[Rfam]
RNA sequence: UUUUUAAAUUGUCCUAAUGUCAUCUGUCUCUGAUAGCAGUGUCUGCCUGUGUUUUGCAUUCAGAUCUCGCUAUCCACACAAACAUCAUGCAGCCAAAGAAUAAGUUGGGAUCAUAGUACUGGUCUAGUUUUGUCUCUUUCGACCUAUCUACCACUGGCCAGCCUCCAAAUUCCCACACACAG
Numbered sequence: 001u002u003u004u005u006a007a008a009u010u011g012u013c014c015u016a017a018u019g020u021c022a023u024c025u026g027u028c029u030c031u032g033a034u035a036g037c038a039g040u041g042u043c044u045g046c047c048u049g050u051g052u053u054u055u056g057c058a059u060u061c062a063g064a065u066c067u068c069g070c071u072a073u074c075c076a077c078a079c080a081a082a083c084a085u086c087a088u089g090c091a092g093c094c095a096a097a098g099a100a101u102a103a104g105u106u107g108g109g110a111u112c113a114u115a116g117u118a119c120u121g122g123u124c125u126a127g128u129u130u131u132g133u134c135u136c137u138u139u140c141g142a143c144c145u146a147u148c149u150a151c152c153a154c155u156g157g158c159c160a161g162c163c164u165c166c167a168a169a170u171u172c173c174c175a176c177a178c179a180c181a182g
Stems, first nucleotide, its partner, number of pairs: 013089001015087001027080001029078001031076002034072004039067001041065005048058003106175005119161006126155003131146002135142002
Dot-bracket structure: ............(.(...........(.(.((.((((.(.(((((..(((.....)))..))))).).))))..)).).)......).)................(((((........((((((.(((..((..((....))..))......))))))))).........))))).......
Small nucleolar RNA SNORA23: a 182-nucleotide sequence from Suricata suricatta. It scores 138 bits against the family's covariance model. For this family Rfam cites "RNomics: an experimental approach that identifies 201 candidates for novel, small, non-messenger RNAs in mouse" (Huttenhofer et al., EMBO J, 2001). It is annotated as an H/ACA-box small nucleolar RNA. The members of this family belong to the H/ACA class of snoRNAs which are thought to guide the sites of modification of uridines to pseudouridines. This family includes human snoRNA ACA23 (SNORA23) and mouse snoMBI-1. ACA23 is predicted to guide the pseudouridylation of residue U3737 and U4331 of 28S rRNA.